[Rfam]
RNA: c-di-GMP-I riboswitch aptamer
RNA sequence: CAGCGAAAAGGGCAUACCCGUUGCAAGGCGGGGACGCAAAGCCACGGAGCCUUCACCGGCGAGCCGGGCUACCAAC
Numbered sequence: 001c002a003g004c005g006a007a008a009a010g011g012g013c014a015u016a017c018c019c020g021u022u023g024c025a026a027g028g029c030g031g032g033g034a035c036g037c038a039a040a041g042c043c044a045c046g047g048a049g050c051c052u053u054c055a056c057c058g059g060c061g062a063g064c065c066g067g068g069c070u071a072c073c074a075a076c
Base pairs, nucleotide, nucleotide: 012037013036017032018031019030020029021028022027040070041069042068043067045066046065047064049060050059